[Rfam]
RNA sequence: CUGCUAUCUCAGGGCGGGGUGAAAGUCCCCACCGGCGGUAAACAUUCCAUUGCGAAUGAAGCCCGCGAGCGCUUCACUACGGUGAAGGUCAGCAGAUCCGGUGUAAUUCCGGGGCCGACGGUUAUAGUCCGGAUGGGAGAGAGUCA
Numbered sequence: 001c002u003g004c005u006a007u008c009u010c011a012g013g014g015c016g017g018g019g020u021g022a023a024a025g026u027c028c029c030c031a032c033c034g035g036c037g038g039u040a041a042a043c044a045u046u047c048c049a050u051u052g053c054g055a056a057u058g059a060a061g062c063c064c065g066c067g068a069g070c071g072c073u074u075c076a077c078u079a080c081g082g083u084g085a086a087g088g089u090c091a092g093c094a095g096a097u098c099c100g101g102u103g104u105a106a107u108u109c110c111g112g113g114g115c116c117g118a119c120g121g122u123u124a125u126a127g128u129c130c131g132g133a134u135g136g137g138a139g140a141g142a143g144u145c146a
Stems, first nucleotide, its partner, number of pairs: 007142004017029003031128002033117002035066004061115002069093002097113005119131003
Annotation:
FMN riboswitch aptamer (RFN element): a 146-nucleotide RNA from Morganella morganii.